[Rfam]
RNA sequence: GACUAAGCGUAUACGGUGGAUGCCUAGGCAGUUAGAGGCGAUGAAGGACGUGUAAGUCUGCGAAAAGCUGUGGGGAGCCGACAAAAUGCUUUGAUCCACAGAUAUCCGAAUGGGGGAACCCAAUCCUUAGGGAUUAUCAUUAACUGAAUACAUAGGUUAAUGAAGCUAACGAGGGGAACUGAAACAUCUAAGUACCCUUAGGAAAAGAAAUCAAUUGAGAUUCCCCUAGUAGCGGCGAGCGAACGGGGAACAGCCGAGUGUUUAUGGGUUAGCAGAACAAGCUGGAAAGCUUGACGAUACAGGGUGAUAGUCCCGUAUGUGAAGAACCAUAGAUGCCAUAUUAAGUAGGUCGGGACACGUGUUAUCUUGACUGAAGAUGGGGGGACCAUCCUCCAAGGCUAAAUACUCCUAACUGACCGAUAGUGAACCAGUACCGUGAGGGAAAGGCGAAAAGAACCCCAGUGAGGGGAGUGAAAUAGAACCUGAAACCGUAUACGUACAAG
Numbered sequence: 001g002a003c004u005a006a007g008c009g010u011a012u013a014c015g016g017u018g019g020a021u022g023c024c025u026a027g028g029c030a031g032u033u034a035g036a037g038g039c040g041a042u043g044a045a046g047g048a049c050g051u052g053u054a055a056g057u058c059u060g061c062g063a064a065a066a067g068c069u070g071u072g073g074g075g076a077g078c079c080g081a082c083a084a085a086a087u088g089c090u091u092u093g094a095u096c097c098a099c100a101g102a103u104a105u106c107c108g109a110a111u112g113g114g115g116g117a118a119c120c121c122a123a124u125c126c127u128u129a130g131g132g133a134u135u136a137u138c139a140u141u142a143a144c145u146g147a148a149u150a151c152a153u154a155g156g157u158u159a160a161u162g163a164a165g166c167u168a169a170c171g172a173g174g175g176g177a178a179c180u181g182a183a184a185c186a187u188c189u190a191a192g193u194a195c196c197c198u199u200a201g202g203a204a205a206a207g208a209a210a211u212c213a214a215u216u217g218a219g220a221u222u223c224c225c226c227u228a229g230u231a232g233c234g235g236c237g238a239g240c241g242a243a244c245g246g247g248g249a250a251c252a253g254c255c256g257a258g259u260g261u262u263u264a265u266g267g268g269u270u271a272g273c274a275g276a277a278c279a280a281g282c283u284g285g286a287a288a289g290c291u292u293g294a295c296g297a298u299a300c301a302g303g304g305u306g307a308u309a310g311u312c313c314c315g316u317a318u319g320u321g322a323a324g325a326a327c328c329a330u331a332g333a334u335g336c337c338a339u340a341u342u343a344a345g346u347a348g349g350u351c352g353g354g355a356c357a358c359g360u361g362u363u364a365u366c367u368u369g370a371c372u373g374a375a376g377a378u379g380g381g382g383g384g385a386c387c388a389u390c391c392u393c394c395a396a397g398g399c400u401a402a403a404u405a406c407u408c409c410u411a412a413c414u415g416a417c418c419g420a421u422a423g424u425g426a427a428c429c430a431g432u433a434c435c436g437u438g439a440g441g442g443a444a445a446g447g448c449g450a451a452a453a454g455a456a457c458c459c460c461a462g463u464g465a466g467g468g469g470a471g472u473g474a475a476a477u478a479g480a481a482c483c484u485g486a487a488a489c490c491g492u493a494u495a496c497g498u499a500c501a502a503g
Stems, first nucleotide, its partner, number of pairs: 007498010022483001023447002027418002029415007036407002038166002046107003049062003068101007077089002112121003122135005137163009170201001171199005181188002211218002221403001222249005232240002252400004258336010269325002272320003278293005296300001302314003348372008379394005434441002457469004
RNA: Bacterial large subunit ribosomal RNA, nucleotides 9 to 511
Organism: Paraglaciecola hydrolytica